[Rfam]
RNA sequence: AAAAAGGGCUCCUGUCAUGAGUGGCACACGUGGGGCAACUCAACUGCUCUUCAUGCGGAAAUAACAUCAAGAAAUUUCAGAAGCAUAAUUUUUUGGUAUCUGGGCAGCUGGUGAACGUUGGUCCCGGCACCCCC
Number, nucleotide and partner (000 for none) at each position: 001a000002a000003a000004a000005a000006g000007g000008g084009c083010u082011c000012c080013u026014g025015u024016c023017a022018u000019g000020a000021g000022u017023g016024g015025c014026a013027c055028a054029c000030g052031u000032g050033g049034g048035g047036c046037a045038a000039c000040u000041c000042a000043a000044c000045u037046g036047c035048u034049c033050u032051u000052c030053a000054u028055g027056c000057g078058g077059a076060a075061a000062u073063a000064a000065c000066a000067u000068c000069a000070a000071g000072a000073a062074a000075u060076u059077u058078c057079a000080g012081a000082a010083g009084c008085a000086u000087a000088a000089u000090u000091u000092u000093u000094u000095g000096g000097u000098a000099u000100c000101u000102g132103g131104g130105c000106a000107g128108c127109u126110g125111g124112u000113g123114a122115a000116c120117g000118u000119u000120g116121g000122u114123c113124c111125c110126g109127g108128c107129a000130c104131c103132c102133c000134c000
Rfam assigns this 134-nucleotide RNA sequence from Otolemur garnettii to the family "U11 spliceosomal RNA". The base pairs follow the family's consensus structure, which is taken from published work. For this family Rfam cites "Additional low-abundance human small nuclear ribonucleoproteins: U11, U12, etc" (Montzka and Steitz, Proc Natl Acad Sci U S A, 1988). It scores 98 bits against the family's covariance model.